[Rfam]
RNA: MIR1861 microRNA precursor family
Organism: Oryza punctata
RNA sequence: AUAUUCUUAGGCCCGAUCUUGUGGCAGGAACUGGGUAGUUAGUGUACUCACUCUAUGUUGUUCGUUCACUCGCAACACGGUUCCUGUCACGAGAUCGAGUCAGCGAAUAC
Numbered sequence: 001a002u003a004u005u006c007u008u009a010g011g012c013c014c015g016a017u018c019u020u021g022u023g024g025c026a027g028g029a030a031c032u033g034g035g036u037a038g039u040u041a042g043u044g045u046a047c048u049c050a051c052u053c054u055a056u057g058u059u060g061u062u063c064g065u066u067c068a069c070u071c072g073c074a075a076c077a078c079g080g081u082u083c084c085u086g087u088c089a090c091g092a093g094a095u096c097g098a099g100u101c102a103g104c105g106a107a108u109a110c
Stems, first nucleotide, its partner, number of pairs: 002109005008103001010101003014097008023088011035076002